[Rfam]
The record is a 73-nucleotide sequence from Denticeps clupeoides, which matches "Small nucleolar RNA SNORD24" in Rfam. It is annotated as a C/D-box small nucleolar RNA. A search with the family's covariance model found it, with a score of 69 bits.

RNA sequence: UGCAUAUGAUGUGAAAGAAUAUUUGCUAUCAGAACAGUAUAUGGUGACAUUUCCCACCAAGAUCACUGAUGCA
Numbered sequence: 001u002g003c004a005u006a007u008g009a010u011g012u013g014a015a016a017g018a019a020u021a022u023u024u025g026c027u028a029u030c031a032g033a034a035c036a037g038u039a040u041a042u043g044g045u046g047a048c049a050u051u052u053c054c055c056a057c058c059a060a061g062a063u064c065a066c067u068g069a070u071g072c073a
Stems, first nucleotide, its partner, number of pairs: 001073004
Notes
Its family is annotated with nucleolus and RNA processing in the Gene Ontology.